The record is an 87-nucleotide RNA from Leersia perrieri, which matches "Plastid-psbM 3UTR RNA" in Rfam. Rfam 15.1 lists 627 matches to the family in 337 species. On this family, see Richter et al., Plant Commun 2023: "Retrograde signaling in plants: A critical review focusing on the GUN pathway and beyond". NCBI's taxonomy places the organism under Eukaryota, Streptophyta, Tracheophyta, Spermatophyta, Leersia. The match comes from Rfam's covariance-model search (57 bits). The family's RNA type in Rfam is cis-regulatory element.
[Rfam]
RNA sequence: AAUCAUAAAGUGUGGUAGAAAGAACUACAUAUAGUUCUUUCUACCACACUUUACUUUAGAGUCUUUCUAUUAUAUUAGAAUAGAAAG
Numbered sequence: 001a002a003u004c005a006u007a008a009a010g011u012g013u014g015g016u017a018g019a020a021a022g023a024a025c026u027a028c029a030u031a032u033a034g035u036u037c038u039u040u041c042u043a044c045c046a047c048a049c050u051u052u053a054c055u056u057u058a059g060a061g062u063c064u065u066u067c068u069a070u071u072a073u074a075u076u077a078g079a080a081u082a083g084a085a086a087g
Base pairs, nucleotide, nucleotide: 006053007052008051009050010049011048012047013046014045015044016043017042018041019040020039021038022037023036024035025034026033027032